A member of the RNA family "THF (Tetrahydrofolate) riboswitch aptamer" from Dethiobacter alkaliphilus, 93 nucleotides long. Rfam's curators write: Tetrahydrofolate (THF) riboswitch was first reported for Ames et al. as an RNA motif in 5' untranslated (5'-UTR)regions of folate transport and biosynthesis genes in Firmicutes genomes. For this family Rfam cites "A eubacterial riboswitch class that senses the coenzyme tetrahydrofolate" (Ames et al., Chem Biol, 2010).

RNA sequence: UGCAGAGUAGGUGGCAUGCGUUAAGUGCUAAGGGAUGGGAAGUUGCCCUUAGACGAAAGGUUUAUCCUGCGAUAUGUCACCGCAUCCACUGCC
Numbered sequence: 001u002g003c004a005g006a007g008u009a010g011g012u013g014g015c016a017u018g019c020g021u022u023a024a025g026u027g028c029u030a031a032g033g034g035a036u037g038g039g040a041a042g043u044u045g046c047c048c049u050u051a052g053a054c055g056a057a058a059g060g061u062u063u064a065u066c067c068u069g070c071g072a073u074a075u076g077u078c079a080c081c082g083c084a085u086c087c088a089c090u091g092c093c
Stems, first nucleotide, its partner, number of pairs: 002092004010081009019071003025054002028052007038087003042083001058068003
Dot-bracket structure: .((((....((((((((((((...((.(((((((...[[[.[...)))))))))...(((.....)))))).))))))))).].]]].)))).